[Rfam]
RNA sequence: GCAGAACAUCCCCACACUCGGAUCGUCCGGCACGUUCCUGCCGGUGAAGGGAACCACCA
Numbered sequence: 001g002c003a004g005a006a007c008a009u010c011c012c013c014a015c016a017c018u019c020g021g022a023u024c025g026u027c028c029g030g031c032a033c034g035u036u037c038c039u040g041c042c043g044g045u046g047a048a049g050g051g052a053a054c055c056a057c058c059a
Stems, first nucleotide, its partner, number of pairs: 010051003015046002027044006
The family of this 59-nucleotide RNA from Hoyosella rhizosphaerae is "msiK RNA". The base pairs follow the family's consensus structure, which is taken from published work.